[Rfam]
RNA: U11 spliceosomal RNA
RNA sequence: AAAAAGGGUCAGCUGGCUAAUUAUGCAAUGCUCAUCCUUGUUGUUGAGUGCUGUAUGACUAUCCGGAUAUAUGACUGACAUAAUUUUUGUGAAAUUCUAGGGUUGGCUUCCUAAGCCGACCCUAUAA
Numbered sequence: 001a002a003a004a005a006g007g008g009u010c011a012g013c014u015g016g017c018u019a020a021u022u023a024u025g026c027a028a029u030g031c032u033c034a035u036c037c038u039u040g041u042u043g044u045u046g047a048g049u050g051c052u053g054u055a056u057g058a059c060u061a062u063c064c065g066g067a068u069a070u071a072u073g074a075c076u077g078a079c080a081u082a083a084u085u086u087u088u089g090u091g092a093a094a095u096u097c098u099a100g101g102g103u104u105g106g107c108u109u110c111c112u113a114a115g116c117c118g119a120c121c122c123u124a125u126a127a
Base pairs, nucleotide, nucleotide: 008079009078010077011076012075014028016026017025029050030049031048032047033046034045036043052073053072054071055070056069057068098124099123100122101121102120103119104118105117106116107115108114109113